RNA: U7 small nuclear RNA
Organism: Mus musculus
RNA sequence: GAGUAAACACAGCUCUUUUAGAAUUUUUCUAGCAGGAUUUCUGACUUUGGUCAGAAAAGUCCAAA
Numbered sequence: 001g002a003g004u005a006a007a008c009a010c011a012g013c014u015c016u017u018u019u020a021g022a023a024u025u026u027u028u029c030u031a032g033c034a035g036g037a038u039u040u041c042u043g044a045c046u047u048u049g050g051u052c053a054g055a056a057a058a059g060u061c062c063a064a065a
Stems, first nucleotide, its partner, number of pairs: 035062003038057008